[Rfam]
RNA: MIR9560 microRNA precursor family
Organism: Brassica carinata
RNA sequence: GUGUGUACUGACAGGUGGUGGAACAAAUAUGAGUUUUUGAAUAUAGUCAAAACAAAAUUAAACUCAUAUUAGUUCUACCUCCUGCUGAAGCCCACA
Numbered sequence: 001g002u003g004u005g006u007a008c009u010g011a012c013a014g015g016u017g018g019u020g021g022a023a024c025a026a027a028u029a030u031g032a033g034u035u036u037u038u039g040a041a042u043a044u045a046g047u048c049a050a051a052a053c054a055a056a057a058u059u060a061a062a063c064u065c066a067u068a069u070u071a072g073u074u075c076u077a078c079c080u081c082c083u084g085c086u087g088a089a090g091c092c093c094a095c096a
Stems, first nucleotide, its partner, number of pairs: 001095003005091002009087002012084004017079008026070011